[Rfam]
RNA sequence: AAAAUGAAAAGGCAAACUUACUGAAAGGUAAGGACGCAAAGCUACGAGUCUAAAAUCCUAUUGGGAUUAUGAUAGUCGGGUUGCCAAA
Numbered sequence: 001a002a003a004a005u006g007a008a009a010a011g012g013c014a015a016a017c018u019u020a021c022u023g024a025a026a027g028g029u030a031a032g033g034a035c036g037c038a039a040a041g042c043u044a045c046g047a048g049u050c051u052a053a054a055a056u057c058c059u060a061u062u063g064g065g066a067u068u069a070u071g072a073u074a075g076u077c078g079g080g081u082u083g084c085c086a087a088a
Stems, first nucleotide, its partner, number of pairs: 012037002017032006040082004045078003048073003055067004
c-di-GMP-I riboswitch aptamer: an 88-nucleotide RNA from Lysinibacillus sphaericus.